[Rfam]
RNA: nhaA-I RNA
RNA sequence: GGGUCUAGAGGGAAUACGCUCUAGAGGUUAAAUAAGGUAAGAUGGUCGGGCCGCCAUCU
Numbered sequence: 001g002g003g004u005c006u007a008g009a010g011g012g013a014a015u016a017c018g019c020u021c022u023a024g025a026g027g028u029u030a031a032a033u034a035a036g037g038u039a040a041g042a043u044g045g046u047c048g049g050g051c052c053g054c055c056a057u058c059u
Base pairs, nucleotide, nucleotide: 005024006023007022008021009020010019040059041058042057043056044055045054046053